[Rfam]
RNA sequence: UAUAACUAUAGAGGAGCUUUUAACAUUAGUAAUUAACAGGAGUAGGCAUACAAAGAAAGUUAAUGAAAGGGUAUAAAAGCCGAAAUUAAAAUAAUGGCAAUUAUUUUGAUUGGUAGAAAAACAUAAAAGAUUUCUACUCUUUGGGAAAAAACCAUUGGUGCUAUAGAUUUA
Dot-bracket structure: .....((((((....((((((.((.......((((((.....................))))))......))..))))))...((((((((((((....))))))))))))(((((((.(.(......).))))))))......................)))))).....
Numbered sequence: 001u002a003u004a005a006c007u008a009u010a011g012a013g014g015a016g017c018u019u020u021u022a023a024c025a026u027u028a029g030u031a032a033u034u035a036a037c038a039g040g041a042g043u044a045g046g047c048a049u050a051c052a053a054a055g056a057a058a059g060u061u062a063a064u065g066a067a068a069g070g071g072u073a074u075a076a077a078a079g080c081c082g083a084a085a086u087u088a089a090a091a092u093a094a095u096g097g098c099a100a101u102u103a104u105u106u107u108g109a110u111u112g113g114u115a116g117a118a119a120a121a122c123a124u125a126a127a128a129g130a131u132u133u134c135u136a137c138u139c140u141u142u143g144g145g146a147a148a149a150a151a152c153c154a155u156u157g158g159u160g161c162u163a164u165a166g167a168u169u170u171a
Stems, first nucleotide, its partner, number of pairs: 006166006016080006023072002032064006084111012112138007120131001122129001